[Rfam]
RNA sequence: AAAUGUAGUAGACUAUAAGUAUACAUGAAGUGCAUGGAGUAUACUAAGUAUACUACGUUUAC
Number, nucleotide and partner (000 for none) at each position: 001a060002a059003a058004u057005g056006u055007a054008g053009u052010a000011g000012a049013c048014u047015a000016u000017a000018a045019g044020u043021a042022u041023a040024c039025a000026u000027g000028a000029a000030g000031u000032g000033c000034a000035u000036g000037g000038a000039g024040u023041a022042u021043a020044c019045u018046a000047a014048g013049u012050a000051u000052a009053c008054u007055a006056c005057g004058u003059u002060u001061a000062c000
mir-728 microRNA precursor family: a 62-nucleotide RNA sequence from Cynoglossus semilaevis. The family's consensus secondary structure was predicted with RNAalifold.